[Rfam]
RNA sequence: AUUAUUUGAAGAUAGAACAGGCAGCUAUCGCACCUAUAUUAAUAGGUUCAUAAAAGAGAUGCAGGAUACGCCGCCCUGCCAAUUAAU
Numbered sequence: 001a002u003u004a005u006u007u008g009a010a011g012a013u014a015g016a017a018c019a020g021g022c023a024g025c026u027a028u029c030g031c032a033c034c035u036a037u038a039u040u041a042a043u044a045g046g047u048u049c050a051u052a053a054a055a056g057a058g059a060u061g062c063a064g065g066a067u068a069c070g071c072c073g074c075c076c077u078g079c080c081a082a083u084u085a086a087u
Base pairs, nucleotide, nucleotide: 001087002086003085004084006082007081008080011029012028013027014026015025020072021071022070031056032047033046034045035044036043037042061079062078063077064076065075

Shown here is an 87-nucleotide RNA sequence, a member of the family "skipping-rope RNA". By type it is a small RNA.